About this RNA:
Rfam assigns this 70-nucleotide sequence from Carlito syrichta to the family "mir-302 microRNA precursor family". For this family Rfam cites "Human embryonic stem cells express a unique set of microRNAs" (Suh et al., Dev Biol, 2004). Gene Ontology terms of the family: miRNA-mediated post-transcriptional gene silencing and RISC complex. The family has 49 seed sequences and 2,090 matches in Rfam 15.1.

RNA sequence: CCUCUACUUUAACAUGGAGGCACUUGCUGUGCCACGAGAAAUAAGAAAGUGCUUCCAUGUUUGAGUGUGG
Numbered sequence: 001c002c003u004c005u006a007c008u009u010u011a012a013c014a015u016g017g018a019g020g021c022a023c024u025u026g027c028u029g030u031g032c033c034a035c036g037a038g039a040a041a042u043a044a045g046a047a048a049g050u051g052c053u054u055c056c057a058u059g060u061u062u063g064a065g066u067g068u069g070g
Base pairs, nucleotide, nucleotide: 002070003069005067006066007065008064011061012060013059014058015057016056017055018054019053020052021051022050023049024048025047027045028044